[Rfam]
RNA sequence: GACCCUCCUGCGAUGCUCCUCCUCCCGCAUCGCAGGCUAGCUGUAGCGGCAUACCUCCUCCCAUGCCGUCUACAGAAAAUUGCGGCGCCCACCGGAUCUCCUCCCCCGGUGGGCGUUUGCA
Numbered sequence: 001g002a003c004c005c006u007c008c009u010g011c012g013a014u015g016c017u018c019c020u021c022c023u024c025c026c027g028c029a030u031c032g033c034a035g036g037c038u039a040g041c042u043g044u045a046g047c048g049g050c051a052u053a054c055c056u057c058c059u060c061c062c063a064u065g066c067c068g069u070c071u072a073c074a075g076a077a078a079a080u081u082g083c084g085g086c087g088c089c090c091a092c093c094g095g096a097u098c099u100c101c102u103c104c105c106c107c108g109g110u111g112g113g114c115g116u117u118u119g120c121a
Stems, first nucleotide, its partner, number of pairs: 007036009041075006047068004085116011
Rfam assigns this 121-nucleotide RNA sequence from Pleomorphomonas diazotrophica to the family "Alphaproteobacterial ar14". It scores 80 bits against the family's covariance model. Rfam 15.1 lists 784 matches to the family in 332 species. Pairs were carried over by alignment from the consensus structure. It is annotated as a small RNA.